[Rfam]
RNA sequence: ACUUCCGAGGAGCGCUGCGAGACCGCAAGGGUCCCAGGCUCGGAUGCCAGCCCCUCCCCGGGGCGGCCAAGUUUCAACGGCGCUCACCUCUA
Numbered sequence: 001a002c003u004u005c006c007g008a009g010g011a012g013c014g015c016u017g018c019g020a021g022a023c024c025g026c027a028a029g030g031g032u033c034c035c036a037g038g039c040u041c042g043g044a045u046g047c048c049a050g051c052c053c054c055u056c057c058c059c060g061g062g063g064c065g066g067c068c069a070a071g072u073u074u075c076a077a078c079g080g081c082g083c084u085c086a087c088c089u090c091u092a
Base pairs, nucleotide, nucleotide: 002046004044005043006042007041008040021033022032023031024030

The family of this 92-nucleotide sequence from Azospira sp. I13 is "SAH (S-adenosyl-L-homocysteine) riboswitch aptamer".
The source organism's lineage runs through Bacteria, Pseudomonadati, Betaproteobacteria, Rhodocyclales and Azospira.
For this family Rfam cites "Riboswitches that sense S-adenosylhomocysteine and activate genes involved in coenzyme recycling" (Wang et al., Mol Cell, 2008).